[Rfam]
Rfam assigns this 60-nucleotide RNA from Calothrix sp. PCC 6303 to the family "Nitrogen stress-induced RNA 1". Rfam classes the family as a small RNA. Lineage of the source: Bacteria > Cyanobacteriota > Nostocales > Calotrichaceae > Calothrix. The match comes from Rfam's covariance-model search (51 bits). On this family, see Ionescu et al., J Mol Biol 2010: "Heterocyst-specific transcription of NsiR1, a non-coding RNA encoded in a tandem array of direct repeats in cyanobacteria". Rfam 15.1 lists 962 matches to the family in 163 species.
RNA sequence: UAGUAGAUGCACCCUGAUUAAAUUAUUGACCCCAGUUACUUGUCGCUGGGGUCUUUUAUU
Numbered sequence: 001u002a003g004u005a006g007a008u009g010c011a012c013c014c015u016g017a018u019u020a021a022a023u024u025a026u027u028g029a030c031c032c033c034a035g036u037u038a039c040u041u042g043u044c045g046c047u048g049g050g051g052u053c054u055u056u057u058a059u060u
Stems, first nucleotide, its partner, number of pairs: 003012002029052008038043001